[Rfam]
RNA sequence: UACUGUUAUGCCUUUUAGAAUUUGUCUAGAAGGCUUUCUGGUUUUUACUGGAAAGCCCUC
Numbered sequence: 001u002a003c004u005g006u007u008a009u010g011c012c013u014u015u016u017a018g019a020a021u022u023u024g025u026c027u028a029g030a031a032g033g034c035u036u037u038c039u040g041g042u043u044u045u046u047a048c049u050g051g052a053a054a055g056c057c058c059u060c
Base pairs, nucleotide, nucleotide: 032057033056034055035054036053037052038051039050040049041048042047
Notes
Shown here is a 60-nucleotide sequence from Macaca mulatta, a member of the family "U7 small nuclear RNA". The source organism's lineage runs through Eukaryota, Metazoa, Dipnotetrapodomorpha, Haplorrhini and Macaca. Animal histone pre-mRNAs are spliced by a different mechanism than nuclear pre-mRNAs and self-splicing introns. This processing involves the U7 snRNP, which contains only one RNA species: U7. The 5' end of U7 RNA is thought to base-pair to a conserved spacer element downstream of the cleavage site in histone pre-mRNA. This family contains a number of annotated U7 pseudogenes. It scores 57 bits against the family's covariance model.